[Rfam]
RNA sequence: CAGUGAUCGUUUUUCUCAAGGGGGGUCGGCGCACUUCUGUCGGUUGUAGUGUCAUGCGAUACGCUAUAACGGAAGGAGGUGUUGCCUAUGUCCGUGUUCGAGGCAAUGGUUAUCAUGAUUGCAUUCUCAACGCUGGUUGUGGCAAUCAUCGACCAUAAAAAAUAGACCUCCCUUGGUUUAUCAGCCGGUGAGGUCUAUUCUUCACUAGCGCUGACCCCUCUUGAAGGGGAAGCGAUUCAUUGCUGGCCGAAGAUAUGACUGUAUCUUCG
Numbered sequence: 001c002a003g004u005g006a007u008c009g010u011u012u013u014u015c016u017c018a019a020g021g022g023g024g025g026u027c028g029g030c031g032c033a034c035u036u037c038u039g040u041c042g043g044u045u046g047u048a049g050u051g052u053c054a055u056g057c058g059a060u061a062c063g064c065u066a067u068a069a070c071g072g073a074a075g076g077a078g079g080u081g082u083u084g085c086c087u088a089u090g091u092c093c094g095u096g097u098u099c100g101a102g103g104c105a106a107u108g109g110u111u112a113u114c115a116u117g118a119u120u121g122c123a124u125u126c127u128c129a130a131c132g133c134u135g136g137u138u139g140u141g142g143c144a145a146u147c148a149u150c151g152a153c154c155a156u157a158a159a160a161a162a163u164a165g166a167c168c169u170c171c172c173u174u175g176g177u178u179u180a181u182c183a184g185c186c187g188g189u190g191a192g193g194u195c196u197a198u199u200c201u202u203c204a205c206u207a208g209c210g211c212u213g214a215c216c217c218c219u220c221u222u223g224a225a226g227g228g229g230a231a232g233c234g235a236u237u238c239a240u241u242g243c244u245g246g247c248c249g250a251a252g253a254u255a256u257g258a259c260u261g262u263a264u265c266u267u268c269g
Stems, first nucleotide, its partner, number of pairs: 001242005007235003011231001013214002016176007024167001026165001031082008090137003094133003104117002183201002215229004248269009
RNA: BsrG
Organism: Lentibacillus salicampi